RNA sequence: GUAGGUUAUGGGGACAUAUACCCCAUGACAGUGGGGGGCAAGAUCGUGGGCUCACUGUGUGCCAUUGCUGGGGUCCUCACCAUCGCCCUGCCUGUGCCUGUCAUUGUUUCCAAC
Numbered sequence: 001g002u003a004g005g006u007u008a009u010g011g012g013g014a015c016a017u018a019u020a021c022c023c024c025a026u027g028a029c030a031g032u033g034g035g036g037g038g039c040a041a042g043a044u045c046g047u048g049g050g051c052u053c054a055c056u057g058u059g060u061g062c063c064a065u066u067g068c069u070g071g072g073g074u075c076c077u078c079a080c081c082a083u084c085g086c087c088c089u090g091c092c093u094g095u096g097c098c099u100g101u102c103a104u105u106g107u108u109u110c111c112a113a114c
Stems, first nucleotide, its partner, number of pairs: 001114002004111002008107004013102004019096003037077002040074001049063003
RNA: Potassium channel RNA editing signal
Organism: Trichechus manatus